[Rfam]
RNA: Bacterial RNase P class A
Organism: Arthrobacter sp. NamB2
RNA sequence: UGGGUCGACCAGGCGGUCGCGUUGGAUGGUGUGCAAGCAUCGGUUCCACCGAGGAACGUCCGGGCUCCGCAGGGCAGGGUGGUGGGUAACGCCCACUCGGGGUAACCCGCAGGCCAGUGCCACAGAAAAGAAACCGCUGUCCGCAGCAGGCCUCGGCCCACGCACGGGCAGUAAGGGUGAAAAGGUGGUGUAAGAGACCACCAGCGUGCCGGGUGACCGGCAUGGCUCGGUAAACCCCACCCGGAGCAAGGCCAGACAGUGCGCGUUAUCAGGGCUGCCCGCCCGAGUGCACGGGUAGGCCGCUGGAGGGCGUCGGCAACGGCGUCCGUAGAUGGAUGGCCGCCACUCGCGCGACGGUAACGGCGCGCGAUGACAGAACCCGGCGUAUCGGUCGGCCCAUCCC
Numbered sequence: 001u002g003g004g005u006c007g008a009c010c011a012g013g014c015g016g017u018c019g020c021g022u023u024g025g026a027u028g029g030u031g032u033g034c035a036a037g038c039a040u041c042g043g044u045u046c047c048a049c050c051g052a053g054g055a056a057c058g059u060c061c062g063g064g065c066u067c068c069g070c071a072g073g074g075c076a077g078g079g080u081g082g083u084g085g086g087u088a089a090c091g092c093c094c095a096c097u098c099g100g101g102g103u104a105a106c107c108c109g110c111a112g113g114c115c116a117g118u119g120c121c122a123c124a125g126a127a128a129a130g131a132a133a134c135c136g137c138u139g140u141c142c143g144c145a146g147c148a149g150g151c152c153u154c155g156g157c158c159c160a161c162g163c164a165c166g167g168g169c170a171g172u173a174a175g176g177g178u179g180a181a182a183a184g185g186u187g188g189u190g191u192a193a194g195a196g197a198c199c200a201c202c203a204g205c206g207u208g209c210c211g212g213g214u215g216a217c218c219g220g221c222a223u224g225g226c227u228c229g230g231u232a233a234a235c236c237c238c239a240c241c242c243g244g245a246g247c248a249a250g251g252c253c254a255g256a257c258a259g260u261g262c263g264c265g266u267u268a269u270c271a272g273g274g275c276u277g278c279c280c281g282c283c284c285g286a287g288u289g290c291a292c293g294g295g296u297a298g299g300c301c302g303c304u305g306g307a308g309g310g311c312g313u314c315g316g317c318a319a320c321g322g323c324g325u326c327c328g329u330a331g332a333u334g335g336a337u338g339g340c341c342g343c344c345a346c347u348c349g350c351g352c353g354a355c356g357g358u359a360a361c362g363g364c365g366c367g368c369g370a371u372g373a374c375a376g377a378a379c380c381c382g383g384c385g386u387a388u389c390g391g392u393c394g395g396c397c398c399a400u401c402c403c
Stems, first nucleotide, its partner, number of pairs: 001399010011388001012344007020051002023048004056386003060383005065246004072280004077242005082096005097111001098109004112237002117235002119231003134176002136172008184202006204226001205224008250301004259292006272284004308327008